Shown here is a 92-nucleotide sequence from Myotis lucifugus, a member of the family "Small nucleolar RNA SNORD91 family".
Gene Ontology terms of the family: nucleolus and RNA processing.
The family's RNA type in Rfam is C/D-box small nucleolar RNA.
The pairing is the family consensus, mapped onto this sequence.
Taxonomically the source falls in Myotis (Eukaryota, Craniata, Vertebrata, Tetrapoda).
The literature on the family includes a 2001 paper in EMBO J by Huttenhofer et al., "RNomics: an experimental approach that identifies 201 candidates for novel, small, non-messenger RNAs in mouse".
[Rfam]
RNA sequence: UAGAGAAGUCAAUGAUGGUUUAACCCUACAUGUCUGAACCUGUCUGAGCAUCUCAAUGAUGCAACCUGUGUGGUUCUGAGACUUCUCUGAGA
Numbered sequence: 001u002a003g004a005g006a007a008g009u010c011a012a013u014g015a016u017g018g019u020u021u022a023a024c025c026c027u028a029c030a031u032g033u034c035u036g037a038a039c040c041u042g043u044c045u046g047a048g049c050a051u052c053u054c055a056a057u058g059a060u061g062c063a064a065c066c067u068g069u070g071u072g073g074u075u076c077u078g079a080g081a082c083u084u085c086u087c088u089g090a091g092a
Stems, first nucleotide, its partner, number of pairs: 004086007